Rfam assigns this 69-nucleotide RNA to the family "Small nucleolar RNA SNORD30". Rfam links the family to the GO terms nucleolus and RNA processing. The family has 20 seed sequences and 367 matches in Rfam 15.1. Pairs were carried over by alignment from the consensus structure.
RNA sequence: AUAUAUGAUGACUUUCAUAGAAUCUCGUUCGGCUGAUGAUUGCUGUUGAGACUUGGAAAUCUGAUUUUU
Numbered sequence: 001a002u003a004u005a006u007g008a009u010g011a012c013u014u015u016c017a018u019a020g021a022a023u024c025u026c027g028u029u030c031g032g033c034u035g036a037u038g039a040u041u042g043c044u045g046u047u048g049a050g051a052c053u054u055g056g057a058a059a060u061c062u063g064a065u066u067u068u069u
Base pairs, nucleotide, nucleotide: 023051024050025049026048027047030045031044032043033042